[Rfam]
RNA sequence: CUUUUGUAAUGAAAAUAGCCAAAUCUGACAUCAGAGGACCUUCCCGUCUCCCUGAUGCAUGAUCGCUAUAGUUCUGAAA
Dot-bracket structure: ............................((((...((((......))))....))))......................

Background
The record is a 79-nucleotide sequence from Octodon degus, which matches "Small nucleolar RNA U2-19" in Rfam. For this family Rfam cites "Guide RNAs with 5' Caps and Novel Box C/D snoRNA-like Domains for Modification of snRNAs in Metazoa" (Tycowski et al., Curr Biol, 2004). It scores 73 bits against the family's covariance model. Taxonomically the source falls in Octodon (Eukaryota, Tetrapoda, Boreoeutheria, Octodontidae).